The record is a 131-nucleotide RNA sequence from Synechococcales cyanobacterium K44_A2020_017, which matches "c-di-AMP riboswitch aptamer (ydaO/yuaA leader)" in Rfam. The match comes from Rfam's covariance-model search (76 bits). Lineage of the source: Bacteria > Bacillati > Cyanobacteriota > Cyanophyceae > Synechococcales. From the family's description: This family represents a conserved RNA structure found upstream of the ydaO and yuaA genes in Bacillus subtilis and related genes in other bacteria. Rfam links the family to the GO terms regulation of gene expression and cyclic-di-AMP binding.

RNA sequence: UUAAGCCAUCGGCCUAAUUCGGUGUAAACCGAAGCGGAGGACCCACCUUGGGGCGCACCCUGUACCGACAGGGGGGAGACUUCUCACUCCUAGCCCGUCAGCUAACUUCGCCGGCCUUGAGAGGAGACUCA
Numbered sequence: 001u002u003a004a005g006c007c008a009u010c011g012g013c014c015u016a017a018u019u020c021g022g023u024g025u026a027a028a029c030c031g032a033a034g035c036g037g038a039g040g041a042c043c044c045a046c047c048u049u050g051g052g053g054c055g056c057a058c059c060c061u062g063u064a065c066c067g068a069c070a071g072g073g074g075g076g077a078g079a080c081u082u083c084u085c086a087c088u089c090c091u092a093g094c095c096c097g098u099c100a101g102c103u104a105a106c107u108u109c110g111c112c113g114g115c116c117u118u119g120a121g122a123g124g125a126g127a128c129u130c131a
Stems, first nucleotide, its partner, number of pairs: 011116004018033006034111006044050002051096003059072004075090004